The family of this 74-nucleotide RNA from Bombyx mori is "mir-2816 microRNA precursor family". A search with the family's covariance model found it, with a score of 65 bits. Pairs were carried over by alignment from the consensus structure, which was predicted with RNAalifold.
RNA sequence: CUCAACUCUACUCGAAUGAGGUAGAGUCGAGGUAUUGCGUCUCCAUGACGUCGUUAGUUCGAGGAAAAUUUGAU
Numbered sequence: 001c002u003c004a005a006c007u008c009u010a011c012u013c014g015a016a017u018g019a020g021g022u023a024g025a026g027u028c029g030a031g032g033u034a035u036u037g038c039g040u041c042u043c044c045a046u047g048a049c050g051u052c053g054u055u056a057g058u059u060c061g062a063g064g065a066a067a068a069u070u071u072g073a074u
Stems, first nucleotide, its partner, number of pairs: 002073004009065001011063006017056003021052001026049004031044001